[Rfam]
RNA sequence: UCAUAAACAUGAAAAGAGAGCCAUGCAAGAACAUGACCCUCAAACGUAAGCCCAUUUAAGAUGGCAGCUAGUUUAAUAUGUUAUAAAAAU
Numbered sequence: 001u002c003a004u005a006a007a008c009a010u011g012a013a014a015a016g017a018g019a020g021c022c023a024u025g026c027a028a029g030a031a032c033a034u035g036a037c038c039c040u041c042a043a044a045c046g047u048a049a050g051c052c053c054a055u056u057u058a059a060g061a062u063g064g065c066a067g068c069u070a071g072u073u074u075a076a077u078a079u080g081u082u083a084u085a086a087a088a089a090u
Stems, first nucleotide, its partner, number of pairs: 022035004052064005
The family of this 90-nucleotide sequence from Listeria monocytogenes is "RNA anti-toxin A".
Lineage of the source: Bacteria > Bacillati > Caryophanales > Listeriaceae > Listeria monocytogenes.
It is annotated as an antitoxin RNA.
For this family Rfam cites "Abundance of type I toxin-antitoxin systems in bacteria: searches for new candidates and discovery of novel families" (Fozo et al., Nucleic Acids Res, 2010).
It scores 53 bits against the family's covariance model.